[Rfam]
RNA sequence: UUGCCUUAAACUAAUGAGUAAGGAAAACAAAGCGGUCGGUGAGAACCGGUCGCAGCGCUAACGUAAAACAACAAAGUUGCGCAAGAAUUUAUGGAGGGGUUAUAGGCUGGCCGAUGUGUUGACGCUGCUUACUUUUGCAGAACUCACCUCGUGCGGGCCUCCC
Numbered sequence: 001u002u003g004c005c006u007u008a009a010a011c012u013a014a015u016g017a018g019u020a021a022g023g024a025a026a027a028c029a030a031a032g033c034g035g036u037c038g039g040u041g042a043g044a045a046c047c048g049g050u051c052g053c054a055g056c057g058c059u060a061a062c063g064u065a066a067a068a069c070a071a072c073a074a075a076g077u078u079g080c081g082c083a084a085g086a087a088u089u090u091a092u093g094g095a096g097g098g099g100u101u102a103u104a105g106g107c108u109g110g111c112c113g114a115u116g117u118g119u120u121g122a123c124g125c126u127g128c129u130u131a132c133u134u135u136u137g138c139a140g141a142a143c144u145c146a147c148c149u150c151g152u153g154c155g156g157g158c159c160u161c162c163c
Stems, first nucleotide, its partner, number of pairs: 004023005032053008055082004098163002104160005110154001113150002116147003125140004